[Rfam]
RNA sequence: GGGUCAGCAAACAGCUCAGCGGUUACUUCACGAAACAUCACGGAAUUGUAAUUCUGAAAACCCUUCGGGGUUUGAAACCCGCGGGCGCCACCUGACCCUUUU
Numbered sequence: 001g002g003g004u005c006a007g008c009a010a011a012c013a014g015c016u017c018a019g020c021g022g023u024u025a026c027u028u029c030a031c032g033a034a035a036c037a038u039c040a041c042g043g044a045a046u047u048g049u050a051a052u053u054c055u056g057a058a059a060a061c062c063c064u065u066c067g068g069g070g071u072u073u074g075a076a077a078c079c080c081g082c083g084g085g086c087g088c089c090a091c092c093u094g095a096c097c098c099u100u101u102u
Stems, first nucleotide, its partner, number of pairs: 002097006014086004019082004027076004